RNA sequence: CAGCAUGUUUCCAAGGGCUGUGGCCAAUCGUGGCCAUGGGAUCUCCGACGUCAUGUGGGAGCAGCCUGGAGAGACUUUGACAGCACAAGUCAGCGUACUUGUGACUGCCACUCACAUUGCCUAGAACA
Numbered sequence: 001c002a003g004c005a006u007g008u009u010u011c012c013a014a015g016g017g018c019u020g021u022g023g024c025c026a027a028u029c030g031u032g033g034c035c036a037u038g039g040g041a042u043c044u045c046c047g048a049c050g051u052c053a054u055g056u057g058g059g060a061g062c063a064g065c066c067u068g069g070a071g072a073g074a075c076u077u078u079g080a081c082a083g084c085a086c087a088a089g090u091c092a093g094c095g096u097a098c099u100u101g102u103g104a105c106u107g108c109c110a111c112u113c114a115c116a117u118u119g120c121c122u123a124g125a126a127c128a
Stems, first nucleotide, its partner, number of pairs: 011039002016035007068121002071118002083108002086101004
Rfam assigns this 128-nucleotide sequence from Ursus americanus to the family "Small nucleolar RNA SNORA44".